RNA: c-di-GMP-I riboswitch aptamer
Organism: Shewanella sp. SNU WT4
RNA sequence: UUGCGAUAAAGGCAAAAUGCGUGAAAGCGCAUGACGCAAAACCUCCGGUCUAAGUGGUGAAACCAUAAGAUAGCGGGGCUUCCACA
Numbered sequence: 001u002u003g004c005g006a007u008a009a010a011g012g013c014a015a016a017a018u019g020c021g022u023g024a025a026a027g028c029g030c031a032u033g034a035c036g037c038a039a040a041a042c043c044u045c046c047g048g049u050c051u052a053a054g055u056g057g058u059g060a061a062a063c064c065a066u067a068a069g070a071u072a073g074c075g076g077g078g079c080u081u082c083c084a085c086a
Stems, first nucleotide, its partner, number of pairs: 012037002017032006040080001042078002045076003048071003055065004